[Rfam]
RNA: glmS glucosamine-6-phosphate activated ribozyme aptamer
Organism: Limnochorda pilosa
RNA sequence: AACCGAAAAGCAGCGCCUGCACUCGCCGCGCCCGAAGGCGGCGAGUGGACGAGGCAGUGGUUCAUCGAAGCAUUCGGCGGGUGCCACUCGGCCGGCCACGGUCGUAAGGGGUCCCUCAAAGCCGCCGGGCGACCGGCGGGACAAAGGGGGCCUUGGUGGUCCA
Numbered sequence: 001a002a003c004c005g006a007a008a009a010g011c012a013g014c015g016c017c018u019g020c021a022c023u024c025g026c027c028g029c030g031c032c033c034g035a036a037g038g039c040g041g042c043g044a045g046u047g048g049a050c051g052a053g054g055c056a057g058u059g060g061u062u063c064a065u066c067g068a069a070g071c072a073u074u075c076g077g078c079g080g081g082u083g084c085c086a087c088u089c090g091g092c093c094g095g096c097c098a099c100g101g102u103c104g105u106a107a108g109g110g111g112u113c114c115c116u117c118a119a120a121g122c123c124g125c126c127g128g129g130c131g132a133c134c135g136g137c138g139g140g141a142c143a144a145a146g147g148g149g150g151c152c153u154u155g156g157u158g159g160u161c162c163a
Stems, first nucleotide, its partner, number of pairs: 020047008029038001056088005065077004089104006108154007122139007